A member of the RNA family "msiK RNA" from Arthrobacter sp. PAMC 25486, 60 nucleotides long. The match comes from Rfam's covariance-model search (63 bits). The family's consensus secondary structure is taken from published work. Rfam classes the family as a cis-regulatory element.

[Rfam]
RNA sequence: GUUAAACAACCAUUCACAACGGAUCGUUCGGCACGUACCUGCCGAUGAAGGGAUUUAUUA
Numbered sequence: 001g002u003u004a005a006a007c008a009a010c011c012a013u014u015c016a017c018a019a020c021g022g023a024u025c026g027u028u029c030g031g032c033a034c035g036u037a038c039c040u041g042c043c044g045a046u047g048a049a050g051g052g053a054u055u056u057a058u059u060a
Base pairs, nucleotide, nucleotide: 010052011051013049014048015047016046028045029044030043031042032041033040